[Rfam]
RNA sequence: GCCCUUGCACGGCGCCCUGCUGCCGCCUAUCUUGAUCCUCGUUCGGGGCAACCCGGACUAUGGACAUAAACGCGCAGGUAAUAAGCGGAUCGGACCCGGGGGCGGUACCCGGCGGCUCCACCAUCCAUCCCUCGUUGGGGGCGAAUGGGGCCGAAACAGGAUCGACGAACGUCUAAAGCUGUUUGCUUUGUCUCGGUGAGGUACCACCGUUAUCGGUCCGAAAAGUACAGUUGCCAACGACAACCGUGCUCCGGUGGCUCUGGCUGCGUAAGCAGUUCGAGUUAUCGAAACCUAAGUCCUUGCGCUUAGCCGCGUAAGGCGGGGCCCCCAGGCGCCUGGCAACAGAAGCCUGGGACU
Numbered sequence: 001g002c003c004c005u006u007g008c009a010c011g012g013c014g015c016c017c018u019g020c021u022g023c024c025g026c027c028u029a030u031c032u033u034g035a036u037c038c039u040c041g042u043u044c045g046g047g048g049c050a051a052c053c054c055g056g057a058c059u060a061u062g063g064a065c066a067u068a069a070a071c072g073c074g075c076a077g078g079u080a081a082u083a084a085g086c087g088g089a090u091c092g093g094a095c096c097c098g099g100g101g102g103c104g105g106u107a108c109c110c111g112g113c114g115g116c117u118c119c120a121c122c123a124u125c126c127a128u129c130c131c132u133c134g135u136u137g138g139g140g141g142c143g144a145a146u147g148g149g150g151c152c153g154a155a156a157c158a159g160g161a162u163c164g165a166c167g168a169a170c171g172u173c174u175a176a177a178g179c180u181g182u183u184u185g186c187u188u189u190g191u192c193u194c195g196g197u198g199a200g201g202u203a204c205c206a207c208c209g210u211u212a213u214c215g216g217u218c219c220g221a222a223a224a225g226u227a228c229a230g231u232u233g234c235c236a237a238c239g240a241c242a243a244c245c246g247u248g249c250u251c252c253g254g255u256g257g258c259u260c261u262g263g264c265u266g267c268g269u270a271a272g273c274a275g276u277u278c279g280a281g282u283u284a285u286c287g288a289a290a291c292c293u294a295a296g297u298c299c300u301u302g303c304g305c306u307u308a309g310c311c312g313c314g315u316a317a318g319g320c321g322g323g324g325c326c327c328c329c330a331g332g333c334g335c336c337u338g339g340c341a342a343c344a345g346a347a348g349c350c351u352g353g354g355a356c357u
Stems, first nucleotide, its partner, number of pairs: 041058007062193005072186002074182004086171002090168003096112005113153007194209004200219002203217003322337004328353006